The family of this 529-nucleotide part of an RNA from Solanum lycopersicum is "Eukaryotic large subunit ribosomal RNA". The sequence is in the family's curated seed alignment.

[Rfam]
RNA sequence: GACAGUGUUGCAAUAGCAAUUCAACCAAGUACUAGAGGAAGCAUUGGUUCACACAAUUGGCCAUCGCGCUUGGUUGAAAAACCAGUGGCGCGAAAUAUUACUUAUUAGUGAUGCAAAUCUCCUGCUUAUUUUUAUUGUUGUGGGAAUGAAAUUUUUCAAAAUAGUUUGAUCAAAUUACACGGUUUCUCUUGGAGAUUUGGCAGUUCAUUUUUCUAAUCUCUUAAACCCAUGGACAGAGCUUAUGUAUGGAUGAAUAAGAGUUUCAUCAGUUUCUGUGCGGAAGAACGUUGUAUUGGCACUUUCUCAGAUUAUAUUAAACGACAUGAUGAUCGAUUUUGGCUAGAUUAUCAAACAUUUAUGCAUACCUAAAGAUAGCAUUCUCAAACAGAGUUUGUUUUCUCUCUCUCUCUCUCUCUCUGUUAUUCUAUUAGUUGAGUCUAGACGAAACUUCUAAGCUAAAUGGUUUGUUGCCUUUUAUUUUCUUGGAUUAAUUUUCAUUUUGUGUUUUAAAUUUGUGUAGUCUCUCGCC
Numbered sequence: 001g002a003c004a005g006u007g008u009u010g011c012a013a014u015a016g017c018a019a020u021u022c023a024a025c026c027a028a029g030u031a032c033u034a035g036a037g038g039a040a041g042c043a044u045u046g047g048u049u050c051a052c053a054c055a056a057u058u059g060g061c062c063a064u065c066g067c068g069c070u071u072g073g074u075u076g077a078a079a080a081a082c083c084a085g086u087g088g089c090g091c092g093a094a095a096u097a098u099u100a101c102u103u104a105u106u107a108g109u110g111a112u113g114c115a116a117a118u119c120u121c122c123u124g125c126u127u128a129u130u131u132u133u134a135u136u137g138u139u140g141u142g143g144g145a146a147u148g149a150a151a152u153u154u155u156u157c158a159a160a161a162u163a164g165u166u167u168g169a170u171c172a173a174a175u176u177a178c179a180c181g182g183u184u185u186c187u188c189u190u191g192g193a194g195a196u197u198u199g200g201c202a203g204u205u206c207a208u209u210u211u212u213c214u215a216a217u218c219u220c221u222u223a224a225a226c227c228c229a230u231g232g233a234c235a236g237a238g239c240u241u242a243u244g245u246a247u248g249g250a251u252g253a254a255u256a257a258g259a260g261u262u263u264c265a266u267c268a269g270u271u272u273c274u275g276u277g278c279g280g281a282a283g284a285a286c287g288u289u290g291u292a293u294u295g296g297c298a299c300u301u302u303c304u305c306a307g308a309u310u311a312u313a314u315u316a317a318a319c320g321a322c323a324u325g326a327u328g329a330u331c332g333a334u335u336u337u338g339g340c341u342a343g344a345u346u347a348u349c350a351a352a353c354a355u356u357u358a359u360g361c362a363u364a365c366c367u368a369a370a371g372a373u374a375g376c377a378u379u380c381u382c383a384a385a386c387a388g389a390g391u392u393u394g395u396u397u398u399c400u401c402u403c404u405c406u407c408u409c410u411c412u413c414u415c416u417c418u419g420u421u422a423u424u425c426u427a428u429u430a431g432u433u434g435a436g437u438c439u440a441g442a443c444g445a446a447a448c449u450u451c452u453a454a455g456c457u458a459a460a461u462g463g464u465u466u467g468u469u470g471c472c473u474u475u476u477a478u479u480u481u482c483u484u485g486g487a488u489u490a491a492u493u494u495u496c497a498u499u500u501u502g503u504g505u506u507u508u509a510a511a512u513u514u515g516u517g518u519a520g521u522c523u524c525u526c527g528c529c
Base pairs, nucleotide, nucleotide: 004155005154007152008151009150011148014143016141017140019049021047022046023045024044051105053103058100059099060098065092066091067090068089069088070085071084072083073082074081075080108138109137110136115131116130117129118128